[Rfam]
RNA sequence: GGGGAUGUAAAGGUUUCGACGGGGGUGUAGAAGGAGCAUAAGCGAGUCGCAGUCGCCCGGUCUGCGUAAAAAAGGGCCGUUUAAAUAUAAACGCUAAAGAAAAUAAUAAUUUUGCACUAGCUGCCUAAGCAGCGUGCGGUUAGCUUCGGUUUCCCUGUAGGCCAAAGAUCUAACCUCGAAUCAUACAGGACAACCUUAUGAACUUUCCCGGAUUCAUAAGGGACUUACGGGAUAGCAAAUUUGUAAGCCUGCCGUUAGGCGUACAAAGGCGUGAAACUCAAAUUAUCGGCUAUGCUCGAAGAAAGUGCUUUGGACAUGCUUUCGGACAUGGGUUCGACUCCCAUCAUCUCCACCA
Numbered sequence: 001g002g003g004g005a006u007g008u009a010a011a012g013g014u015u016u017c018g019a020c021g022g023g024g025g026u027g028u029a030g031a032a033g034g035a036g037c038a039u040a041a042g043c044g045a046g047u048c049g050c051a052g053u054c055g056c057c058c059g060g061u062c063u064g065c066g067u068a069a070a071a072a073a074g075g076g077c078c079g080u081u082u083a084a085a086u087a088u089a090a091a092c093g094c095u096a097a098a099g100a101a102a103a104u105a106a107u108a109a110u111u112u113u114g115c116a117c118u119a120g121c122u123g124c125c126u127a128a129g130c131a132g133c134g135u136g137c138g139g140u141u142a143g144c145u146u147c148g149g150u151u152u153c154c155c156u157g158u159a160g161g162c163c164a165a166a167g168a169u170c171u172a173a174c175c176u177c178g179a180a181u182c183a184u185a186c187a188g189g190a191c192a193a194c195c196u197u198a199u200g201a202a203c204u205u206u207c208c209c210g211g212a213u214u215c216a217u218a219a220g221g222g223a224c225u226u227a228c229g230g231g232a233u234a235g236c237a238a239a240u241u242u243g244u245a246a247g248c249c250u251g252c253c254g255u256u257a258g259g260c261g262u263a264c265a266a267a268g269g270c271g272u273g274a275a276a277c278u279c280a281a282a283u284u285a286u287c288g289g290c291u292a293u294g295c296u297c298g299a300a301g302a303a304a305g306u307g308c309u310u311u312g313g314a315c316a317u318g319c320u321u322u323c324g325g326a327c328a329u330g331g332g333u334u335c336g337a338c339u340c341c342c343a344u345c346a347u348c349u350c351c352a353c354c355a
Stems, first nucleotide, its partner, number of pairs: 001351007020324009033311007043298005048066005055077004117136001120133005138175006144167003148163004155189002194221009206232005235272002240267005247260003251290004255285001257283001328344005
Shown here is a 355-nucleotide RNA sequence from [Eubacterium] nodatum, a member of the family "transfer-messenger RNA". Taxonomically the source falls in [Eubacterium] nodatum (Bacteria, Clostridia, Peptostreptococcales, Anaerovoracaceae). Rfam classes the family as a non-coding RNA gene. Gene Ontology term of the family: RNA catabolic process. Rfam describes the family as follows. Bacterial tmRNA, also known as 10Sa RNA or SsrA, is named for its dual tRNA and mRNA-like properties. Its role is to liberate the mRNA from a stalled ribosome. To accomplish this part of the tmRNA is used as a reading frame that ends in a translation stop signal. The broken mRNA is replaced in the ribosome by the tmRNA and translation of the tmRNA leads to addition of a proteolysis tag to the incomplete protein enabling recognition by a protease. Recently a number of permuted tmRNA genes have been found encoded in two parts. tmRNAs have been identified in eubacteria and some chloroplasts but are absent from archaeal and eukaryote nuclear genomes.